[Rfam]
RNA: Caulobacter sRNA CrfA
RNA sequence: UCUCGAAGCGCGCGACGCGAUGCGACGCGCAAACUUCGUAGGCGUUUCGGGGAGGAAACGUCCGCUCCUAGACGAGCGAAAGAAGCCCGCCGCGAUGUAUCCCCCGCGGCGGGCUUUUUCGUGCCUGGC
Number, nucleotide and partner (000 for none) at each position: 001u040002c000003u000004c038005g037006a036007a035008g034009c000010g000011c000012g000013c000014g000015a000016c029017g028018c000019g026020a000021u000022g000023c000024g000025a000026c019027g000028c017029g016030c000031a000032a000033a000034c008035u007036u006037c005038g004039u000040a001041g062042g061043c060044g059045u058046u057047u056048c055049g000050g000051g000052g000053a000054g000055g048056a047057a046058a045059c044060g043061u042062c041063c000064g000065c000066u000067c000068c128069u127070a126071g125072a000073c000074g000075a000076g000077c000078g000079a000080a119081a118082g117083a116084a115085g114086c113087c112088c111089g110090c109091c108092g107093c106094g105095a000096u000097g000098u000099a000100u000101c000102c000103c000104c000105c094106g093107c092108g091109g090110c089111g088112g087113g086114c085115u084116u083117u082118u081119u080120c000121g000122u000123g000124c000125c071126u070127g069128g068129c000